Description: tRNA: a 74-nucleotide sequence from Barnesiella sp. An55. From the family's description: Transfer RNA (tRNA) molecules are approximately 80 nucleotides in length. It scores 67 bits against the family's covariance model. The source organism's lineage runs through Bacteria, Pseudomonadati, Bacteroidia, Barnesiellaceae and Barnesiella. The family's RNA type in Rfam is transfer RNA.
RNA sequence: GGCGAGAUAGCUCAGUUGGUUAGAGCGCAUGAUUCAUAAUCAUGAGGUCCCGGGAUCAUACCCCGGUCUCGCUA
Dot-bracket structure: (((((((..((((.........)))).(((((.......))))).....(((((.......)))))))))))).